This 481-nucleotide RNA sequence from Coffea arabica belongs to the Rfam family "Group I catalytic intron". Group I catalytic introns are large self-splicing ribozymes. They catalyse their own excision from mRNA, tRNA and rRNA precursors in a wide range of organisms. The core secondary structure consists of 9 paired regions (P1-P9). These fold to essentially two domains - the P4-P6 domain (formed from the stacking of P5, P4, P6 and P6a helices) and the P3-P9 domain (formed from the P8, P3, P7 and P9 helices). The secondary structure mark-up for this family represents only this conserved core. Group I catalytic introns often have long ORFs inserted in loop regions. The window size for this search is chosen to minimise search time and catch the small examples. A larger window size will find more matches. A search with the family's covariance model found it, with a score of 121 bits. The family's consensus secondary structure is taken from published work. Its family is annotated with Group I intron splicing in the Gene Ontology.
RNA sequence: CUACGGACUUAAUUGAAUUGAGCCUUGGUAUGGAAACCCACUAAGUGAUAACUUUCAAAUUCAGAGAAACCCUGGAAUUAAUAAAAAGGGGCAAUCCUGAGCCAAAUCCCGUUUUCCGAAACCAAAGGAAAGGUUCAGAAAGUGAAAAAAGGAUAGGUGCAGAGACUCAACGGAAGCUGUUCUAACAAAUGGAGUUGGCUGCGUUAGUAGAGAAAUCUUUCCAUCUAAAAUUCCGAAAGGAUAAAGUGAAGGAUAAACGUAUAUACGUAUUGAAUACUAUAUUAAAUGAUUAAUGACGACUCAACUGAAUCUGUAUUUUUUAUAUAAAAAUGGAAGAAUUGGUGUGAAUAGAUUCCACAUUGAAGAAAGAAUCGAAUAUUCAUUGAUCAAAUGAUUCACUCCAUAGUCUGAUAGAUCUUUUCAAGAAUUGAUUAAUCGGACGAGAAUAAAGAUAGAGUCCCGUUCUACAUGUCAAUGUCGG
Numbered sequence: 001c002u003a004c005g006g007a008c009u010u011a012a013u014u015g016a017a018u019u020g021a022g023c024c025u026u027g028g029u030a031u032g033g034a035a036a037c038c039c040a041c042u043a044a045g046u047g048a049u050a051a052c053u054u055u056c057a058a059a060u061u062c063a064g065a066g067a068a069a070c071c072c073u074g075g076a077a078u079u080a081a082u083a084a085a086a087a088g089g090g091g092c093a094a095u096c097c098u099g100a101g102c103c104a105a106a107u108c109c110c111g112u113u114u115u116c117c118g119a120a121a122c123c124a125a126a127g128g129a130a131a132g133g134u135u136c137a138g139a140a141a142g143u144g145a146a147a148a149a150a151g152g153a154u155a156g157g158u159g160c161a162g163a164g165a166c167u168c169a170a171c172g173g174a175a176g177c178u179g180u181u182c183u184a185a186c187a188a189a190u191g192g193a194g195u196u197g198g199c200u201g202c203g204u205u206a207g208u209a210g211a212g213a214a215a216u217c218u219u220u221c222c223a224u225c226u227a228a229a230a231u232u233c234c235g236a237a238a239g240g241a242u243a244a245a246g247u248g249a250a251g252g253a254u255a256a257a258c259g260u261a262u263a264u265a266c267g268u269a270u271u272g273a274a275u276a277c278u279a280u281a282u283u284a285a286a287u288g289a290u291u292a293a294u295g296a297c298g299a300c301u302c303a304a305c306u307g308a309a310u311c312u313g314u315a316u317u318u319u320u321u322a323u324a325u326a327a328a329a330a331u332g333g334a335a336g337a338a339u340u341g342g343u344g345u346g347a348a349u350a351g352a353u354u355c356c357a358c359a360u361u362g363a364a365g366a367a368a369g370a371a372u373c374g375a376a377u378a379u380u381c382a383u384u385g386a387u388c389a390a391a392u393g394a395u396u397c398a399c400u401c402c403a404u405a406g407u408c409u410g411a412u413a414g415a416u417c418u419u420u421u422c423a424a425g426a427a428u429u430g431a432u433u434a435a436u437c438g439g440a441c442g443a444g445a446a447u448a449a450a451g452a453u454a455g456a457g458u459c460c461c462g463u464u465c466u467a468c469a470u471g472u473c474a475a476u477g478u479c480g481g
Stems, first nucleotide, its partner, number of pairs: 005024001008022006028039001050178001052176003056172001061100004066095001070091004101158002107152002114146003162460001164459005180446004467478004